[Rfam]
RNA sequence: AAUUAACACUUGGGGAGCCGCGAAAGGCUGAGACGAAUGAAUGAAUUCGGACCCAUUGAACCUGCUCUGGAUAAUGCCAGCGAAGGGAAGUGGUAGAGCUUUUAU
Numbered sequence: 001a002a003u004u005a006a007c008a009c010u011u012g013g014g015g016a017g018c019c020g021c022g023a024a025a026g027g028c029u030g031a032g033a034c035g036a037a038u039g040a041a042u043g044a045a046u047u048c049g050g051a052c053c054c055a056u057u058g059a060a061c062c063u064g065c066u067c068u069g070g071a072u073a074a075u076g077c078c079a080g081c082g083a084a085g086g087g088a089a090g091u092g093g094u095a096g097a098g099c100u101u102u103u104a105u
Base pairs, nucleotide, nucleotide: 007092008091009090010089011055012054013053014052017028018027019026035048036047037046038045061086062085063084067080068079069078070077
TPP riboswitch aptamer (THI element): a 105-nucleotide RNA sequence from Paenibacillus montaniterrae. Pairs were carried over by alignment from the consensus structure, which is taken from published work. The match comes from Rfam's covariance-model search (75 bits). Taxonomically the source falls in Paenibacillus (Bacteria, Bacillati, Bacillota, Caryophanales). Rfam links the family to the GO term thiamine pyrophosphate binding.